[Rfam]
The record is a 98-nucleotide RNA sequence from Gelidibacter salicanalis, which matches "SAM-I/IV (S-adenosyl methionine) riboswitch aptamer" in Rfam. NCBI's taxonomy places the organism under Bacteria, Pseudomonadati, Bacteroidota, Flavobacteriia, Gelidibacter. Gene Ontology terms of the family: regulation of gene expression and S-adenosylmethionine metabolic process. The base pairs follow the family's consensus structure, which is taken from published work. A search with the family's covariance model found it, with a score of 56 bits. The family is grouped with related families in Rfam's "SAM clan".
RNA sequence: CUUAAUUAUCAAGAAUCUCAUCAAGAGAUAGCAACCUGCAUUAACGAGCAAGGUGCUAAAUAUGAUAAGCCAAAUACUUUGGAAAAAACGUUAUUCUC
Numbered sequence: 001c002u003u004a005a006u007u008a009u010c011a012a013g014a015a016u017c018u019c020a021u022c023a024a025g026a027g028a029u030a031g032c033a034a035c036c037u038g039c040a041u042u043a044a045c046g047a048g049c050a051a052g053g054u055g056c057u058a059a060a061u062a063u064g065a066u067a068a069g070c071c072a073a074a075u076a077c078u079u080u081g082g083a084a085a086a087a088a089c090g091u092u093a094u095u096c097u098c
Stems, first nucleotide, its partner, number of pairs: 006068005015029005030057003035053003038049002044092001070082004